[Rfam]
Shown here is a 91-nucleotide RNA sequence from Secundilactobacillus malefermentans, a member of the family "SAM-III riboswitch aptamer (SMK box)". The family's consensus secondary structure is taken from published work. Taxonomically the source falls in Secundilactobacillus (Bacteria, Bacillati, Bacilli, Lactobacillales). The match comes from Rfam's covariance-model search (66 bits). On this family, see Fuchs et al., Proc Natl Acad Sci U S A 2007: "S-adenosylmethionine directly inhibits binding of 30S ribosomal subunits to the SMK box translational riboswitch RNA". Its family is annotated with regulation of translational initiation and methionine adenosyltransferase activity in the Gene Ontology.

RNA sequence: UAAAGUUAUGAGUUUUCCAUUCCCGAUAGGAUUCACUUCAUGUGAAGAAGCCUUGUAACCGUAUUUAAUCCAUAGGGGGAAUUUUAAAGUG
Numbered sequence: 001u002a003a004a005g006u007u008a009u010g011a012g013u014u015u016u017c018c019a020u021u022c023c024c025g026a027u028a029g030g031a032u033u034c035a036c037u038u039c040a041u042g043u044g045a046a047g048a049a050g051c052c053u054u055g056u057a058a059c060c061g062u063a064u065u066u067a068a069u070c071c072a073u074a075g076g077g078g079g080a081a082u083u084u085u086a087a088a089g090u091g
Base pairs, nucleotide, nucleotide: 020081021080022079023078024077028053029052030051032046033045034044035043036042059076060075